[Rfam]
RNA: Archaeal large subunit ribosomal RNA, nucleotides 902 to 1351
Organism: Halolamina pelagica
RNA sequence: CCAACCGAAACAUGUCGAAGCAUGACCUCAUCCGAGGUAGUUUGCGCGGUAGAGCGACCGAUUGAGAGACCCGCCUCCGAGAGGAGUCGGCCUCUCUGUCGAACUCCGAACGUGCAAACGCCGUGGACGAUGGGAGUCCGGUGCCCGGGGUAAGCUUGGGUACCAUGAGGGGAACAACCCAGAGCUGGGUUAAGGUCCCAAAGUGUGGAUUAAGUGCGAUUUGAAGGUUGUCUCGAGCCCUAAACAGCCGGGAGGUGAGCUUAGAAGCAGCUACCCUCCAAGAAAAGCGUAACAGCUUACCGGCCGAGGUUCGAGGCGCCGAAAAUGAUCGGGGCUCAAAUCCACCACCGAGACCUAGCGGCGCUGGUAACACAGCGACCCAGUAGGUUGGCAUUCUGGACGGAUGGAAGCACGGGUGAGAACUCGCGUGGACCGUCUAGUAACGAAAAU
Numbered sequence: 001c002c003a004a005c006c007g008a009a010a011c012a013u014g015u016c017g018a019a020g021c022a023u024g025a026c027c028u029c030a031u032c033c034g035a036g037g038u039a040g041u042u043u044g045c046g047c048g049g050u051a052g053a054g055c056g057a058c059c060g061a062u063u064g065a066g067a068g069a070c071c072c073g074c075c076u077c078c079g080a081g082a083g084g085a086g087u088c089g090g091c092c093u094c095u096c097u098g099u100c101g102a103a104c105u106c107c108g109a110a111c112g113u114g115c116a117a118a119c120g121c122c123g124u125g126g127a128c129g130a131u132g133g134g135a136g137u138c139c140g141g142u143g144c145c146c147g148g149g150g151u152a153a154g155c156u157u158g159g160g161u162a163c164c165a166u167g168a169g170g171g172g173a174a175c176a177a178c179c180c181a182g183a184g185c186u187g188g189g190u191u192a193a194g195g196u197c198c199c200a201a202a203g204u205g206u207g208g209a210u211u212a213a214g215u216g217c218g219a220u221u222u223g224a225a226g227g228u229u230g231u232c233u234c235g236a237g238c239c240c241u242a243a244a245c246a247g248c249c250g251g252g253a254g255g256u257g258a259g260c261u262u263a264g265a266a267g268c269a270g271c272u273a274c275c276c277u278c279c280a281a282g283a284a285a286a287g288c289g290u291a292a293c294a295g296c297u298u299a300c301c302g303g304c305c306g307a308g309g310u311u312c313g314a315g316g317c318g319c320c321g322a323a324a325a326u327g328a329u330c331g332g333g334g335c336u337c338a339a340a341u342c343c344a345c346c347a348c349c350g351a352g353a354c355c356u357a358g359c360g361g362c363g364c365u366g367g368u369a370a371c372a373c374a375g376c377g378a379c380c381c382a383g384u385a386g387g388u389u390g391g392c393a394u395u396c397u398g399g400a401c402g403g404a405u406g407g408a409a410g411c412a413c414g415g416g417u418g419a420g421a422a423c424u425c426g427c428g429u430g431g432a433c434c435g436u437c438u439a440g441u442a443a444c445g446a447a448a449a450u
Base pairs, nucleotide, nucleotide: 001391002390003389004388005387006386011024012023013022014021015020026136027134028133029132030131031130032129036122037121038120040119041118042117043116044115045114046113047112052107053105054104060100061099062098064096065095066094067093068092073088075086076085077084078083140164141163142162143161144160145159146158147157148156169180170179171178184359185358186357187356188355189354190353194349195348196347203346205345206344207343208342209341210340226320227319228318230317231316232315233314234313235312236311237310238309239308247304248303249302250301251300253277254276255275258272259271260270278282283298287296288295360381361380362377363376364375365374366373392445394442396440397439398438399437400436401435402434403433410429411428413426414425415424416423417422
Dot-bracket structure: ((((((....(((((....))))).(((((((...(((.((((((((....(((.....(((.(((((....(.((((....)))).)...))))).)))...)).)....)))))))))))......)))))).)...(((((((((.......)))))))))....(((......)))...(((((((...(((......(.((((((...............(((.((((((((((.......(((((.(((..(((.........)))..)))(...)(...((......)).).)))))...)))))))))))))...................))))))))))...)))))))(((((((......)))))..))....))))))(.(.((((((((......((.(((((....))))).))...)))))))).)..).....